The record is a 77-nucleotide sequence from Nocardioides islandensis, which matches "ZMP/ZTP riboswitch aptamer (pfl RNA motif)" in Rfam.
Gene Ontology terms of the family: regulation of purine nucleotide biosynthetic process and one-carbon metabolic process.
NCBI's taxonomy places the organism under Bacteria, Bacillati, Actinomycetota, Propionibacteriales, Nocardioides.
RNA sequence: UGACGCGCACACGACUGGCGCGGGUGGGUGACCACCGGGGAGUGACGUCGUGGGCAUCGCCCGCCUGGGUGCCCGCU
Numbered sequence: 001u002g003a004c005g006c007g008c009a010c011a012c013g014a015c016u017g018g019c020g021c022g023g024g025u026g027g028g029u030g031a032c033c034a035c036c037g038g039g040g041a042g043u044g045a046c047g048u049c050g051u052g053g054g055c056a057u058c059g060c061c062c063g064c065c066u067g068g069g070u071g072c073c074c075g076c077u
Stems, first nucleotide, its partner, number of pairs: 003048003010044003015039002017065004024035004054072005